This 73-nucleotide sequence from Caproiciproducens galactitolivorans belongs to the Rfam family "Fluoride riboswitch aptamer (crcB RNA motif)".
Taxonomically the source falls in Caproiciproducens (Bacteria, Bacillati, Bacillota, Acutalibacteraceae).
The match comes from Rfam's covariance-model search (38 bits).
RNA sequence: UACCCUUAAAGGGAUGAAGCUCCCCUUCGGAAUAUCCGAAUUGCUGAUUACAGCUGAUGGCUUCUACAAGAUU
Numbered sequence: 001u002a003c004c005c006u007u008a009a010a011g012g013g014a015u016g017a018a019g020c021u022c023c024c025c026u027u028c029g030g031a032a033u034a035u036c037c038g039a040a041u042u043g044c045u046g047a048u049u050a051c052a053g054c055u056g057a058u059g060g061c062u063u064c065u066a067c068a069a070g071a072u073u
Stems, first nucleotide, its partner, number of pairs: 010026004016064006043054004